[Rfam]
This 69-nucleotide RNA from Tenacibaculum aiptasiae belongs to the Rfam family "DUF805 RNA". The match comes from Rfam's covariance-model search (70 bits). Rfam classes the family as a cis-regulatory element. Rfam 15.1 lists 281 matches to the family in 219 species. Clan: DUF805 clan. Lineage of the source: Bacteria > Flavobacteriia > Flavobacteriales > Flavobacteriaceae > Tenacibaculum.

RNA sequence: CUAAAGUAGAGACAGAAACUACUUAAAAAAACGAGGCGUCCCCCGAAAAGCCAUAUGAGUAGGAAUUUU
Numbered sequence: 001c002u003a004a005a006g007u008a009g010a011g012a013c014a015g016a017a018a019c020u021a022c023u024u025a026a027a028a029a030a031a032c033g034a035g036g037c038g039u040c041c042c043c044c045g046a047a048a049a050g051c052c053a054u055a056u057g058a059g060u061a062g063g064a065a066u067u068u069u
Base pairs, nucleotide, nucleotide: 006022007021008020009019035052036051037050042063043062